[Rfam]
The record is a 153-nucleotide RNA from Lachnoclostridium sp. An118, which matches "FMN riboswitch aptamer (RFN element)" in Rfam. Taxonomically the source falls in Lachnoclostridium (Bacteria, Bacillati, Bacillota, Clostridia). The base pairs follow the family's consensus structure, which is taken from published work.
RNA sequence: UAAAGUCUUCGGGGUCGGGUGAAAGUCCCAACCGGCGGUAUAGUCCGCGACCCGCGAGCACAUGGAUGCGCUGCAGAGCAUGGGAGAUGUGUGAACGGCUGAUUUGGUGAAAUUCCAAAACCGACAGUACAGUCUGGAUGAGAGAAGAACUAU
Numbered sequence: 001u002a003a004a005g006u007c008u009u010c011g012g013g014g015u016c017g018g019g020u021g022a023a024a025g026u027c028c029c030a031a032c033c034g035g036c037g038g039u040a041u042a043g044u045c046c047g048c049g050a051c052c053c054g055c056g057a058g059c060a061c062a063u064g065g066a067u068g069c070g071c072u073g074c075a076g077a078g079c080a081u082g083g084g085a086g087a088u089g090u091g092u093g094a095a096c097g098g099c100u101g102a103u104u105u106g107g108u109g110a111a112a113u114u115c116c117a118a119a120a121c122c123g124a125c126a127g128u129a130c131a132g133u134c135u136g137g138a139u140g141a142g143a144g145a146a147g148a149a150c151u152a153u
Stems, first nucleotide, its partner, number of pairs: 003151001006148005017029003031133002033123002035048004043121002052098002103119005125136003